[Rfam]
RNA sequence: UUUCGUUCUCAGGGCGGGGUGGAAUUCCCCACCGGCGGUUAUAGCCCGCGAGCGCCUAGAAGUUUUCUGGGGUCAGCAGAUUCGGUGAAAAUCCGAAGCCGACGGUUAAAGUCCGGAUGGAAGAGAACCACU
Numbered sequence: 001u002u003u004c005g006u007u008c009u010c011a012g013g014g015c016g017g018g019g020u021g022g023a024a025u026u027c028c029c030c031a032c033c034g035g036c037g038g039u040u041a042u043a044g045c046c047c048g049c050g051a052g053c054g055c056c057u058a059g060a061a062g063u064u065u066u067c068u069g070g071g072g073u074c075a076g077c078a079g080a081u082u083c084g085g086u087g088a089a090a091a092u093c094c095g096a097a098g099c100c101g102a103c104g105g106u107u108a109a110a111g112u113c114c115g116g117a118u119g120g121a122a123g124a125g126a127a128c129c130a131c132u
Base pairs, nucleotide, nucleotide: 003130005128006127007126008125009124010123017029018028019027031112032111033101034100035049036048037047038046044099045098052077053076081097082096083095084094085093103115104114105113

FMN riboswitch aptamer (RFN element): a 132-nucleotide RNA from Octadecabacter arcticus. The base pairs follow the family's consensus structure, which is taken from published work. The match comes from Rfam's covariance-model search (121 bits). The source organism's lineage runs through Bacteria, Alphaproteobacteria, Roseobacteraceae, Octadecabacter and Octadecabacter arcticus.